[Rfam]
RNA: Small nucleolar RNA SNORA61
RNA sequence: CACCUCUGGUUCCCUUUCCCAUGGGAUCUGAACACCUGUCCUGGUGGUCGUAAAAGGACGACUAGUUAGACUGAAGCUGUCCUCAGGAGCUGUCUGCUUUAGAGCAUGUGGGCUAGUUUCAAACAAGG
Numbered sequence: 001c002a003c004c005u006c007u008g009g010u011u012c013c014c015u016u017u018c019c020c021a022u023g024g025g026a027u028c029u030g031a032a033c034a035c036c037u038g039u040c041c042u043g044g045u046g047g048u049c050g051u052a053a054a055a056g057g058a059c060g061a062c063u064a065g066u067u068a069g070a071c072u073g074a075a076g077c078u079g080u081c082c083u084c085a086g087g088a089g090c091u092g093u094c095u096g097c098u099u100u101a102g103a104g105c106a107u108g109u110g111g112g113c114u115a116g117u118u119u120c121a122a123a124c125a126a127g128g
Stems, first nucleotide, its partner, number of pairs: 003060001005058003019047004025040003077116003081112003089105002